About this RNA: The family of this 100-nucleotide sequence from Clostridium sp. DL-VIII is "Purine riboswitch aptamer".
[Rfam]
RNA sequence: AAAAUUAAUAGAAAAGUAGUUCGUAUAACUUCAAUAAUAUGGUUUGAAGGUCUCUACCAGGAACCACAAAAUCCUGAUUACGAAGAAAAUUGGUUAUUCA
Numbered sequence: 001a002a003a004a005u006u007a008a009u010a011g012a013a014a015a016g017u018a019g020u021u022c023g024u025a026u027a028a029c030u031u032c033a034a035u036a037a038u039a040u041g042g043u044u045u046g047a048a049g050g051u052c053u054c055u056a057c058c059a060g061g062a063a064c065c066a067c068a069a070a071a072u073c074c075u076g077a078u079u080a081c082g083a084a085g086a087a088a089a090u091u092g093g094u095u096a097u098u099c100a
Base pairs, nucleotide, nucleotide: 020084021083022082023081024080025079029049030048031047032046033045034044058076059075060074061073062072

About the family: Riboswitches are metabolite binding domains within certain messenger RNAs that serve as precision sensors for their corresponding targets. Rfam 15.1 lists 4,097 matches to the family in 1,411 species.